[Rfam]
Nucleotides: 092
Stems, first nucleotide, its partner, number of pairs: 001092001003090003026055003030051001032047002
Number, partner (000 for none) and nucleotide at each position: 001092g002000g003090a004089u005088c006000g007000a008000u009000g010000a011000u012000g013000a014000c015000u016000u017000c018000c019000a020000c021000a022000u023000a024000u025000a026055c027054a028053u029000u030051c031000c032047u033046u034000g035000g036000a037000a038000a039000u040000c041000u042000g043000a044000g045000a046033a047032a048000a049000a050000u051030g052000c053028g054027u055026g056000a057000a058000a059000a060000c061000c062000c063000c064000c065000c066000a067000c068000c069000c070000u071000c072000u073000c074000a075000c076000u077000c078000a079000u080000c081000g082000a083000c084000c085000u086000g087000a088005g089004g090003u091000g092001c